[Rfam]
RNA sequence: UUACCGGGACGACCCGGUGUACGACCUGUCAUGCCGGGGACGACCCCA
Numbered sequence: 001u002u003a004c005c006g007g008g009a010c011g012a013c014c015c016g017g018u019g020u021a022c023g024a025c026c027u028g029u030c031a032u033g034c035c036g037g038g039g040a041c042g043a044c045c046c047c048a
Base pairs, nucleotide, nucleotide: 002019003018004017005016006015007014008013036047037046038045039044

Record summary
Guanidine-II riboswitch aptamer (mini-ykkC): a 48-nucleotide RNA sequence from Halomonas sp. BC04. NCBI's taxonomy places the organism under Bacteria, Pseudomonadota, Gammaproteobacteria, Oceanospirillales, Halomonas. For this family Rfam cites "Identification of 22 candidate structured RNAs in bacteria using the CMfinder comparative genomics pipeline" (Weinberg et al., Nucleic Acids Res, 2007). Rfam describes the family as follows. Simpler in structure and has fewer highly conserved nucleotide positions than the ykkC-yxkD leader. Pairs were carried over by alignment from the consensus structure, which is taken from published work.